[Rfam]
RNA sequence: GCUGGGUGAGUAGCGAUCGCCUGUAACCCAUGCGGGAGCUGGAUCUGUGUGAAUGGUCGGUCGUGCCUAGGGCUGAUCAGAGAUCGGCCGCCCGUCCCAAGGGGCCACCAGGUCUGGGUGGGAUGAUGGAAGUCGUCGCAUCCGGACAUCUGAAGAAGCGGGUACAGGCUAAGGCUGGGAACAGAGCAGGCAAUACCGCGCGGUGGAAUCAGUGAGGAUGGAAAGUGGUCGAGAGACUGGUAGCCUGGGCAAUAACAUCGACAUGCCAAACACAAAGAUCGU
Number, nucleotide and partner (000 for none) at each position: 001g039002c038003u037004g022005g021006g020007u019008g018009a017010g000011u000012a000013g000014c000015g000016a000017u009018c008019g007020c006021c005022u004023g000024u000025a000026a000027c036028c035029c034030a000031u000032g000033c000034g029035g028036g027037a003038g002039c001040u000041g000042g280043a279044u278045c277046u276047g000048u274049g273050u272051g271052a000053a000054u269055g000056g267057u000058c265059g264060g000061u260062c000063g000064u251065g250066c249067c248068u247069a246070g245071g000072g244073c243074u242075g000076a241077u240078c239079a238080g237081a000082g000083a000084u232085c231086g230087g229088c228089c227090g226091c225092c221093c220094g000095u217096c216097c000098c214099a213100a000101g210102g209103g000104g000105c206106c205107a204108c203109c202110a149111g000112g147113u146114c145115u144116g143117g142118g141119u140120g139121g000122g137123a136124u135125g134126a133127u132128g000129g000130a000131a000132g127133u126134c125135g124136u123137c122138g000139c120140a119141u118142c117143c116144g115145g114146a113147c112148a000149u110150c155151u000152g000153a000154a000155g150156a000157a000158g199159c198160g197161g196162g000163u000164a000165c000166a000167g000168g191169c190170u189171a000172a000173g000174g000175c184176u183177g182178g000179g000180a000181a000182c177183a176184g175185a000186g000187c000188a000189g170190g169191c168192a000193a000194u000195a000196c161197c160198g159199c158200g000201c000202g109203g108204u107205g106206g105207a000208a000209u102210c101211a000212g000213u099214g098215a000216g096217g095218a000219u000220g093221g092222a000223a000224a000225g091226u090227g089228g088229u087230c086231g085232a084233g000234a000235g000236a000237c080238u079239g078240g077241u076242a074243g073244c072245c070246u069247g068248g067249g066250c065251a064252a000253u000254a000255a000256c000257a000258u000259c000260g061261a000262c000263a000264u059265g058266c000267c056268a000269a054270a000271c051272a050273c049274a048275a000276a046277g045278a044279u043280c042281g000282u000
A member of the RNA family "Metazoan signal recognition particle RNA" from Perkinsus marinus, 282 nucleotides long. The match comes from Rfam's covariance-model search (106 bits). The source organism's lineage runs through Eukaryota, Alveolata, Perkinsozoa, Perkinsus and Perkinsus marinus. The family is grouped with related families in Rfam's "SRP clan". The family's consensus secondary structure is taken from published work.